[Rfam]
RNA: mir-2796 microRNA precursor family
Organism: Papilio machaon
RNA sequence: UGACACUGGCAGGGGUUUCUUUCGGCCUUCAGCUGUUCAAAGUCUGUAGGCCGGCGGAAACUACUUGCUAGCGUCA
Numbered sequence: 001u002g003a004c005a006c007u008g009g010c011a012g013g014g015g016u017u018u019c020u021u022u023c024g025g026c027c028u029u030c031a032g033c034u035g036u037u038c039a040a041a042g043u044c045u046g047u048a049g050g051c052c053g054g055c056g057g058a059a060a061c062u063a064c065u066u067g068c069u070a071g072c073g074u075c076a
Stems, first nucleotide, its partner, number of pairs: 006071003010067004014062007022054007030046003